[Rfam]
RNA: U5 spliceosomal RNA
Organism: Kluyveromyces lactis
RNA sequence: ACGUCUGGCGAUCAGUAUCAAUGGGGGCGUUCCAGCUUUUUACUGGUUUGCCCUCGUUUCGAACAUGGUUCUUGCCUUUUACCAGAACCAUCCGGGUACUGUCCCAACUAUGGACUCAAUACUCUGUCUAAUUUUUGGCAGCCUUUUUUUAAAGAAA
Numbered sequence: 001a002c003g004u005c006u007g008g009c010g011a012u013c014a015g016u017a018u019c020a021a022u023g024g025g026g027g028c029g030u031u032c033c034a035g036c037u038u039u040u041u042a043c044u045g046g047u048u049u050g051c052c053c054u055c056g057u058u059u060c061g062a063a064c065a066u067g068g069u070u071c072u073u074g075c076c077u078u079u080u081a082c083c084a085g086a087a088c089c090a091u092c093c094g095g096g097u098a099c100u101g102u103c104c105c106a107a108c109u110a111u112g113g114a115c116u117c118a119a120u121a122c123u124c125u126g127u128c129u130a131a132u133u134u135u136u137g138g139c140a141g142c143c144u145u146u147u148u149u150u151a152a153a154g155a156a157a
Stems, first nucleotide, its partner, number of pairs: 003115004010104001013101007065091008143154004